[Rfam]
Overview
This 121-nucleotide RNA sequence from Alginatibacterium sediminis belongs to the Rfam family "Histidine operon leader". At least 6 amino acid operons are known to be regulated by attenuation. In each a leader sequence of 150-200 bp is found upstream of the first gene in the operon. NCBI's taxonomy places the organism under Bacteria, Pseudomonadati, Gammaproteobacteria, Alteromonadaceae, Alginatibacterium.

RNA sequence: ACAUCACCAUCAUCAUCCAGAGUAGGCUUUCAGGAGGCGUACACCUGGAAGCAAAUUAGCUUCCGGUGGUGUCAGACAAAUUAGAAACCCCCGGAAGGUAUGCCUCCCGGGGGUUUUCUUU
Numbered sequence: 001a002c003a004u005c006a007c008c009a010u011c012a013u014c015a016u017c018c019a020g021a022g023u024a025g026g027c028u029u030u031c032a033g034g035a036g037g038c039g040u041a042c043a044c045c046u047g048g049a050a051g052c053a054a055a056u057u058a059g060c061u062u063c064c065g066g067u068g069g070u071g072u073c074a075g076a077c078a079a080a081u082u083a084g085a086a087a088c089c090c091c092c093g094g095a096a097g098g099u100a101u102g103c104c105u106c107c108c109g110g111g112g113g114u115u116u117u118c119u120u121u
Stems, first nucleotide, its partner, number of pairs: 010041001011039001013037002017034002020031002044066002047064006084117011096105003